A member of the RNA family "Small nucleolar RNA SNORA58" from Anhinga anhinga, 134 nucleotides long. Rfam describes the family as follows. ACA52 is a member of the H/ACA class of snoRNA that guide the sites of modification of uridines to pseudouridines. For this family Rfam cites "RNomics: an experimental approach that identifies 201 candidates for novel, small, non-messenger RNAs in mouse" (Huttenhofer et al., EMBO J, 2001).
[Rfam]
RNA sequence: CUGCAUACCGGUAGAUCUUAUCUGGUUUUCCAAUAGCCAGAUGAGAGGGAUGGUGCAUGCUACAAAAACCUGGGGUUGCUGUAGGCUCUCAUCAGCCAUGAUGUGGCUGAUUGAACUGCAAUACUCCAACACAU
Numbered sequence: 001c002u003g004c005a006u007a008c009c010g011g012u013a014g015a016u017c018u019u020a021u022c023u024g025g026u027u028u029u030c031c032a033a034u035a036g037c038c039a040g041a042u043g044a045g046a047g048g049g050a051u052g053g054u055g056c057a058u059g060c061u062a063c064a065a066a067a068a069c070c071u072g073g074g075g076u077u078g079c080u081g082u083a084g085g086c087u088c089u090c091a092u093c094a095g096c097c098a099u100g101a102u103g104u105g106g107c108u109g110a111u112u113g114a115a116c117u118g119c120a121a122u123a124c125u126c127c128a129a130c131a132c133a134u
Stems, first nucleotide, its partner, number of pairs: 003060004008055001016046009072127004077123001080120003092110005